Shown here is a 110-nucleotide RNA sequence from Mycobacterium triviale, a member of the family "TPP riboswitch aptamer (THI element)".
The base pairs follow the family's consensus structure, which is taken from published work.
Lineage of the source: Bacteria > Bacillati > Actinomycetota > Mycobacterium > Mycobacterium (subgen. Mycolicibacillus).

RNA sequence: CACACACCGCACGGGAGCGUCCAUCGAGGGCGCUGAGAGGACGGCUGGAGCCGUCGACCGUCUGAACCUGACCGGGUAAUGCCGGCGUAGGGAGAUGAAGAUGACCGACC
Numbered sequence: 001c002a003c004a005c006a007c008c009g010c011a012c013g014g015g016a017g018c019g020u021c022c023a024u025c026g027a028g029g030g031c032g033c034u035g036a037g038a039g040g041a042c043g044g045c046u047g048g049a050g051c052c053g054u055c056g057a058c059c060g061u062c063u064g065a066a067c068c069u070g071a072c073c074g075g076g077u078a079a080u081g082c083c084g085g086c087g088u089a090g091g092g093a094g095a096u097g098a099a100g101a102u103g104a105c106c107g108a109c110c
Stems, first nucleotide, its partner, number of pairs: 007097001010094001011061004017033005040055005067091004072085004